[Rfam]
RNA sequence: UCGUUAGUAAGGUUAAUCCUUACCUAUUCCUCCUUUUGGAGAACAGAGGUAAAAUGAUGAUUGGAGCUCACGUGAUACGUGAUUAGCGUCUCUGUGUGAGCAGGACUUGCAACAUCCUGUUUGCGUCUAUCUGAU
Numbered sequence: 001u002c003g004u005u006a007g008u009a010a011g012g013u014u015a016a017u018c019c020u021u022a023c024c025u026a027u028u029c030c031u032c033c034u035u036u037u038g039g040a041g042a043a044c045a046g047a048g049g050u051a052a053a054a055u056g057a058u059g060a061u062u063g064g065a066g067c068u069c070a071c072g073u074g075a076u077a078c079g080u081g082a083u084u085a086g087c088g089u090c091u092c093u094g095u096g097u098g099a100g101c102a103g104g105a106c107u108u109g110c111a112a113c114a115u116c117c118u119g120u121u122u123g124c125g126u127c128u129a130u131c132u133g134a135u
Stems, first nucleotide, its partner, number of pairs: 024046002028043001030041004074092002077089003080085001096124009
Dot-bracket structure: .......................((..(.((((....)))).).))...........................((.((((....).))).))...(((((((((...........)))))))))...........
This 135-nucleotide RNA from Echinops telfairi belongs to the Rfam family "U8 small nucleolar RNA". On this family, see Peculis, Mol Cell Biol 1997: "The sequence of the 5' end of the U8 small nucleolar RNA is critical for 5.8S and 28S rRNA maturation".